[Rfam]
RNA sequence: AAUUAAACUUGGCAAACCUGCCGAAAGGCAGCGACGCAAAGCUAUAGGGCCUUAACUGGUAACCAGCUGCAUUCUCCGCAAGGGGGGCAGCCGGCUGUUUUU
Numbered sequence: 001a002a003u004u005a006a007a008c009u010u011g012g013c014a015a016a017c018c019u020g021c022c023g024a025a026a027g028g029c030a031g032c033g034a035c036g037c038a039a040a041g042c043u044a045u046a047g048g049g050c051c052u053u054a055a056c057u058g059g060u061a062a063c064c065a066g067c068u069g070c071a072u073u074c075u076c077c078g079c080a081a082g083g084g085g086g087g088c089a090g091c092c093g094g095c096u097g098u099u100u101u102u
Stems, first nucleotide, its partner, number of pairs: 012037002018031005040096004047092002049088003056082002059079001